[Rfam]
RNA sequence: CAUCUCUGCUAGGGGUCUGCGCAGAAGUUGGUCGGCGCAGUGAGACACACCCUUUGAACCUGAUACGGGUCAUGCCGUCGUAGGGAAGCAUCUGGCCGUGCUC
Numbered sequence: 001c002a003u004c005u006c007u008g009c010u011a012g013g014g015g016u017c018u019g020c021g022c023a024g025a026a027g028u029u030g031g032u033c034g035g036c037g038c039a040g041u042g043a044g045a046c047a048c049a050c051c052c053u054u055u056g057a058a059c060c061u062g063a064u065a066c067g068g069g070u071c072a073u074g075c076c077g078u079c080g081u082a083g084g085g086a087a088g089c090a091u092c093u094g095g096c097c098g099u100g101c102u103c
Stems, first nucleotide, its partner, number of pairs: 007090004011053004016047001017040005059084004065078004
This 103-nucleotide RNA from Sulfuriferula plumbiphila belongs to the Rfam family "TPP riboswitch aptamer (THI element)". Pairs were carried over by alignment from the consensus structure, which is taken from published work. It scores 63 bits against the family's covariance model.